Rfam assigns this 342-nucleotide RNA sequence from Sphingomonas sp. Leaf17 to the family "Alphaproteobacteria transfer-messenger RNA".
RNA sequence: GGGCUUUUCAUUCCCCGGUGCCCGCCCUAUAUCGGCUACGCCGGGUUCGCCCGGCUAUGGCGAUAAAGUGCGGCGUUCAAUAGAUGCAGCGGACCCGGGGGCAGUACCCGGCGACUCCACCAAAACGCGUCUUUCAGGCGGGUUCUGACGGGGUCGAACCAGGAUCGACGUGUAUUCAAACGCGCUGUUUUCGCCCGGGCUGAGUAACCCGUUAAAGGCUCAAAACCACAAGUGCUAACGAUAACGAAGCACUCGCAAUCGCCGCAUAAGCCGGACCUAACGGUCUAGUUUAUUUCGGACGAAAGCGCGGUCGGGCCGAACCGGGCAACAGAAGCGGUUCCA
Dot-bracket structure: .......................................(((((......)))))...(((((......(((((((........(((.(((...(((((.......)))))(((((((...............................)))))))............)))))).......)))))))..)))))((((.[[[....))))........]]].....................................................................................((((..[[....))))................]].

A search with the family's covariance model found it, with a score of 231 bits. The base pairs follow the family's consensus structure, which is taken from published work. About the family: Bacterial tmRNA, also known as 10Sa RNA or SsrA, is named for its dual tRNA and mRNA-like properties. Its role is to liberate the mRNA from a stalled ribosome. To accomplish this part of the tmRNA is used as a reading frame that ends in a translation stop signal. Rfam classes the family as a non-coding RNA gene.